[Rfam]
RNA sequence: AAUUGCUCCGCAUUAGCAGCACGUAAAUAUUGGGUGAUAUGAUAUGGAGCCCCAGUAUUAUUGUACUGCUUAAGUGUGGCAAGG
Numbered sequence: 001a002a003u004u005g006c007u008c009c010g011c012a013u014u015a016g017c018a019g020c021a022c023g024u025a026a027a028u029a030u031u032g033g034g035u036g037a038u039a040u041g042a043u044a045u046g047g048a049g050c051c052c053c054a055g056u057a058u059u060a061u062u063g064u065a066c067u068g069c070u071u072a073a074g075u076g077u078g079g080c081a082a083g084g
Stems, first nucleotide, its partner, number of pairs: 003082004013072001015070005021064003026059008034050002

Shown here is an 84-nucleotide RNA sequence from Xenopus tropicalis, a member of the family "mir-15 microRNA precursor family".
Rfam links the family to the GO terms RISC complex and miRNA-mediated post-transcriptional gene silencing.
For this family Rfam cites "Frequent deletions and down-regulation of micro- RNA genes miR15 and miR16 at 13q14 in chronic lymphocytic leukemia" (Calin et al., Proc Natl Acad Sci U S A, 2002).
The sequence is in the family's curated seed alignment.